A member of the RNA family "Plastid-ccsA-ndhD-1 3UTR RNA" from Nyssa sinensis, 57 nucleotides long. The match comes from Rfam's covariance-model search (58 bits). For this family Rfam cites "Surprising features of plastid ndhD transcripts: addition of non-encoded nucleotides and polysome association of mRNAs with an unedited start codon" (Zandueta-Criado and Bock, Nucleic Acids Res, 2004).
RNA sequence: UUGUUGUGAAGAACCAUUUGAAUCAAGUAGUGUAGUGAUUCACAUGGUUCUCACAAA
Numbered sequence: 001u002u003g004u005u006g007u008g009a010a011g012a013a014c015c016a017u018u019u020g021a022a023u024c025a026a027g028u029a030g031u032g033u034a035g036u037g038a039u040u041c042a043c044a045u046g047g048u049u050c051u052c053a054c055a056a057a
Stems, first nucleotide, its partner, number of pairs: 010051008019042007

Clan: Plastid-ccsA_ndhD 3UTR RNA clan.
Taxonomically the source falls in Nyssa (Eukaryota, Streptophytina, Mesangiospermae, eudicotyledons).
The family's RNA type in Rfam is cis-regulatory element.
From the family's description: Plastid-ccsA-ndhD-1 is a non-coding RNA (ncRNA) recognised in plastids. It was found in the three prime untranslated region (3UTR) of ccsA and ndhD genes, its 3UTR location suggests a role in transcript maturation.